The record is a 62-nucleotide RNA, which matches "RAGATH-18 RNA" in Rfam. From the family's description: Actinobacteria, Firmicutes, Fusobacteria, Thermotogae (1 example). It is one of the family's seed sequences.

[Rfam]
RNA sequence: CCUUCGGACUGUUGUAUCAAACGAAAGUAGCUUCGGUGAAAUCGGACAGGAUGAACAAGGAA
Numbered sequence: 001c002c003u004u005c006g007g008a009c010u011g012u013u014g015u016a017u018c019a020a021a022c023g024a025a026a027g028u029a030g031c032u033u034c035g036g037u038g039a040a041a042u043c044g045g046a047c048a049g050g051a052u053g054a055a056c057a058a059g060g061a062a
Base pairs, nucleotide, nucleotide: 001060002059003058004057009049010048011047012046013045022044023043024042030037031036